This 65-nucleotide sequence from Panicum virgatum belongs to the Rfam family "Small nucleolar RNA R160". Rfam classes the family as a C/D-box small nucleolar RNA. The source organism's lineage runs through Eukaryota, Streptophytina, Euphyllophyta, commelinids and Panicum sect. Hiantes. Pairs were carried over by alignment from the consensus structure. A reference for the family is Chen et al. (2003), "The high diversity of snoRNAs in plants: identification and comparative study of 120 snoRNA genes from Oryza sativa", Nucleic Acids Res. From the family's description: snoR160 is a C/D box small nucleolar RNA, which acts as a methylation guide for 25S ribosomal RNA in plants. snoR160 has been alternatively named snoZ270 in rice. It scores 58 bits against the family's covariance model.

RNA sequence: AGCAAAAUGAGGAGGUCAUACGAUCUGAAGUAUCUGAUGUUGAUACAUACAUUCCUGGUGUUGCU
Numbered sequence: 001a002g003c004a005a006a007a008u009g010a011g012g013a014g015g016u017c018a019u020a021c022g023a024u025c026u027g028a029a030g031u032a033u034c035u036g037a038u039g040u041u042g043a044u045a046c047a048u049a050c051a052u053u054c055c056u057g058g059u060g061u062u063g064c065u
Base pairs, nucleotide, nucleotide: 001065002064003063004062005061